Record summary:
Shown here is a 330-nucleotide sequence from Otolemur garnettii, a member of the family "Nuclear RNase P". Rfam describes the family as follows. Ribonuclease P (RNase P) is a ubiquitous endoribonuclease, found in archaea, bacteria and eukarya as well as chloroplasts and mitochondria. Clan: RNaseP clan. A search with the family's covariance model found it, with a score of 123 bits. The family's consensus secondary structure is taken from published work. Rfam links the family to the GO terms ribonuclease P complex, ribonuclease P activity and tRNA processing.

[Rfam]
RNA sequence: GUUAGAAAGCACUCCUGCACUCCAAACUUCUAAUGAGGCUGUGAGCUGAGUGUGUCACAUCGCUCAACCCUUAGGAAGGUCUGGGAUUAGGGCCAGAAGAGCCUAAACAGGGCUUUUUGACAGGGUGAUGAGUUCCCAGAGAAUAAGGCUUUGUAUAAAAUCAGAUUGGGCAGGAGAUCCUGUGGACCCCACCAUUUCGGGGGGCCCAGUAGUCAAUGCCUCCUUUUAGCCAUAGCUUAGAACAGACUCAGCCAGCAUAGUUCAAUGUCUGAGGUAAGAUACCCCAAAUAGAGGCUUUAUAACCCAAUUCAGACUACUCUUCUCUCUUUC
Numbered sequence: 001g002u003u004a005g006a007a008a009g010c011a012c013u014c015c016u017g018c019a020c021u022c023c024a025a026a027c028u029u030c031u032a033a034u035g036a037g038g039c040u041g042u043g044a045g046c047u048g049a050g051u052g053u054g055u056c057a058c059a060u061c062g063c064u065c066a067a068c069c070c071u072u073a074g075g076a077a078g079g080u081c082u083g084g085g086a087u088u089a090g091g092g093c094c095a096g097a098a099g100a101g102c103c104u105a106a107a108c109a110g111g112g113c114u115u116u117u118u119g120a121c122a123g124g125g126u127g128a129u130g131a132g133u134u135c136c137c138a139g140a141g142a143a144u145a146a147g148g149c150u151u152u153g154u155a156u157a158a159a160a161u162c163a164g165a166u167u168g169g170g171c172a173g174g175a176g177a178u179c180c181u182g183u184g185g186a187c188c189c190c191a192c193c194a195u196u197u198c199g200g201g202g203g204g205c206c207c208a209g210u211a212g213u214c215a216a217u218g219c220c221u222c223c224u225u226u227u228a229g230c231c232a233u234a235g236c237u238u239a240g241a242a243c244a245g246a247c248u249c250a251g252c253c254a255g256c257a258u259a260g261u262u263c264a265a266u267g268u269c270u271g272a273g274g275u276a277a278g279a280u281a282c283c284c285c286a287a288a289u290a291g292a293g294g295c296u297u298u299a300u301a302a303c304c305c306a307a308u309u310c311a312g313a314c315u316a317c318u319c320u321u322c323u324c325u326c327u328u329u330c
Base pairs, nucleotide, nucleotide: 001327005322006321007320010273012271016267034073035072036071037070038069048065049064050063051062052061053059081312082311083310084309085308091253092252093251100114101113102112103111104110115127116124117123130249131248132247133246134245148236149235150234274300275299276298277297278296280294
Dot-bracket structure: (...(((..[.[...[.................(((((.........((((((.....).)))))...))))).......(((((.....(((......(((((.....)))))(((.....))..)..(((((.............(((...................................................................................)))........))))).))).............]...].](((((.(.............).))))).......))))).......)))....)...